The record is a 117-nucleotide sequence from Corynebacterium uterequi, which matches "TPP riboswitch aptamer (THI element)" in Rfam. Lineage of the source: Bacteria > Bacillati > Actinomycetota > Mycobacteriales > Corynebacterium.

RNA sequence: ACGCUCAGCCACGGGUGCCCACCGCUGUGGGCUGAGAUUCCUGCGAACGAAGACGCAGGGGAACCGUUGAACCUGAUCCGGGUAAUUCCGGCGCUAGGAAGGAAAGUAAAUACCGUG
Dot-bracket structure: ........((((((.((((((......)))))......(((((((........))))))))..))))....((((..((((......))))...))))..))...............